This 177-nucleotide sequence from Eleutherodactylus coqui belongs to the Rfam family "U2 spliceosomal RNA". Rfam links the family to the GO terms U2 snRNP, pre-mRNA branch point binding and mRNA branch site recognition.
RNA sequence: AUAGCUUCUUGGCCUUUUGGCUAAGAUCAAGUGUAGUAUUAGUUUAAUAUCUGAUACGUCCCCUAGCUGGAGACCAUAUAUUAAAUAGAGUUUUAGAACGGAGCUGCAAAAAGAGCUUACUCUGUCCACUUCGCGCAUGACCUGGUAUUGCAGUACUCCAGGUCCGGUGCCCCCCUU
Number, nucleotide and partner (000 for none) at each position: 001a000002u000003a000004g000005c000006u000007u026008c025009u024010u000011g022012g021013c020014c019015u000016u000017u000018u000019g014020g013021c012022u011023a000024a009025g008026a007027u000028c000029a000030a000031g000032u000033g000034u000035a000036g000037u056038a055039u054040u053041a052042g051043u000044u000045u000046a000047a000048u000049a000050u000051c042052u041053g040054a039055u038056a037057c000058g074059u073060c072061c000062c070063c069064u000065a000066g000067c000068u000069g063070g062071a000072g060073a059074c058075c000076a000077u000078a000079u000080a000081u000082u000083a000084a000085a000086u000087a000088g000089a000090g000091u000092u000093u000094u000095a000096g000097a000098a000099c000100g132101g131102a130103g129104c000105u000106g126107c000108a000109a000110a000111a000112a123113g122114a121115g120116c000117u000118u000119a000120c115121u114122c113123u112124g000125u000126c106127c000128a000129c103130u102131u101132c100133g000134c000135g170136c169137a168138u167139g165140a000141c162142c161143u160144g159145g158146u000147a000148u000149u000150g000151c000152a000153g000154u000155a000156c000157u000158c145159c144160a143161g142162g141163u000164c000165c139166g000167g138168u137169g136170c135171c000172c000173c000174c000175c000176u000177u000
The match comes from Rfam's covariance-model search (113 bits). NCBI's taxonomy places the organism under Eukaryota, Bilateria, Euteleostomi, Eleutherodactylinae, Eleutherodactylus. The family's consensus secondary structure is taken from published work. It is annotated as a spliceosomal small nuclear RNA.